[Rfam]
RNA: Fibro-purF RNA
RNA sequence: GUCCGCUUCCCCGCUUGCAUCCGUACGGAUGGGCUAUGGCCUUCGAGGCACGGGAAGUCCACAUUUCAAAGAGGC
Numbered sequence: 001g002u003c004c005g006c007u008u009c010c011c012c013g014c015u016u017g018c019a020u021c022c023g024u025a026c027g028g029a030u031g032g033g034c035u036a037u038g039g040c041c042u043u044c045g046a047g048g049c050a051c052g053g054g055a056a057g058u059c060c061a062c063a064u065u066u067c068a069a070a071g072a073g074g075c
Stems, first nucleotide, its partner, number of pairs: 005058007018031005039049003